[Rfam]
RNA sequence: AGGUUUGGAGAGAGAAACAGGGUCUGAUCCAUAGCCUCUGUGGCAGCUGUUGAUCAACCCUUGCCUCUCUCUUUCUCUCUG
Numbered sequence: 001a002g003g004u005u006u007g008g009a010g011a012g013a014g015a016a017a018c019a020g021g022g023u024c025u026g027a028u029c030c031a032u033a034g035c036c037u038c039u040g041u042g043g044c045a046g047c048u049g050u051u052g053a054u055c056a057a058c059c060c061u062u063g064c065c066u067c068u069c070u071c072u073u074u075c076u077c078u079c080u081g
Base pairs, nucleotide, nucleotide: 008073009072010071011070012069013068014067015066018063019062020061022059025056026055027054028053029052032049033048034047035046